[Rfam]
RNA: PyrR binding site
RNA sequence: AAUCCCUUUUAAAAACAGUCCCGUGAGGCUGGCAAAGGGAGGCUGCUAAUAGAAGCUUUUUAAGCUUCUGUACAAGUAUACCCUCUUUGUCAAAAUAUGGACAAAGAGGGUUUUUUAU
Numbered sequence: 001a002a003u004c005c006c007u008u009u010u011a012a013a014a015a016c017a018g019u020c021c022c023g024u025g026a027g028g029c030u031g032g033c034a035a036a037g038g039g040a041g042g043c044u045g046c047u048a049a050u051a052g053a054a055g056c057u058u059u060u061u062a063a064g065c066u067u068c069u070g071u072a073c074a075a076g077u078a079u080a081c082c083c084u085c086u087u088u089g090u091c092a093a094a095a096u097a098u099g100g101a102c103a104a105a106g107a108g109g110g111u112u113u114u115u116u117a118u
Stems, first nucleotide, its partner, number of pairs: 003040007016031005049071009078113001080111012
Dot-bracket structure: ..(((((((......(((((......)))))..)))))))........(((((((((.....)))))))))......(.((((((((((((........)))))))))))).).....